RNA: Ma3 gene ribosomal frameshift signal
Organism: Capra hircus
RNA sequence: AGAAAACAAGAGAGAGGCUGGAGCCAUUGAGCCACCCUAAACCUUAGGAAGGAUAGGCUCA
Numbered sequence: 001a002g003a004a005a006a007c008a009a010g011a012g013a014g015a016g017g018c019u020g021g022a023g024c025c026a027u028u029g030a031g032c033c034a035c036c037c038u039a040a041a042c043c044u045u046a047g048g049a050a051g052g053a054u055a056g057g058c059u060c061a
Base pairs, nucleotide, nucleotide: 014045015044016043017042019040021038023036029060030059031058032057033056